[Rfam]
The family of this 133-nucleotide RNA sequence from [Bacillus] caldolyticus is "PyrR binding site". The literature on the family includes a 2001 paper in Nucleic Acids Res by Bonner et al., "Molecular recognition of pyr mRNA by the Bacillus subtilis attenuation regulatory protein PyrR". Pairs were carried over by alignment from the consensus structure, which is taken from published work. From the family's description: This family represents the PyrR binding site and terminator structure. This RNA structure is found upstream of a variety of genes involved in pyrimidine biosynthesis and transport. The alignment also includes a portion of the antiterminator structure.
RNA sequence: AGCACCUUUUAAUUAAGUCCCGCGAGGCUUAAAAAGGUGUGAAAACAGGCGCAUCCAGGGCCGGAGUGCACCUUCUUCGGCUCUGCCAUGCGCCGAUCGUCACACCUUGCCUGGCCGGCAAGGUGUUUUUUUU
Numbered sequence: 001a002g003c004a005c006c007u008u009u010u011a012a013u014u015a016a017g018u019c020c021c022g023c024g025a026g027g028c029u030u031a032a033a034a035a036g037g038u039g040u041g042a043a044a045a046c047a048g049g050c051g052c053a054u055c056c057a058g059g060g061c062c063g064g065a066g067u068g069c070a071c072c073u074u075c076u077u078c079g080g081c082u083c084u085g086c087c088a089u090g091c092g093c094c095g096a097u098c099g100u101c102a103c104a105c106c107u108u109g110c111c112u113g114g115c116c117g118g119c120a121a122g123g124u125g126u127u128u129u130u131u132u133u
Stems, first nucleotide, its partner, number of pairs: 003039007014031006048082003053077001057073003102126008111118002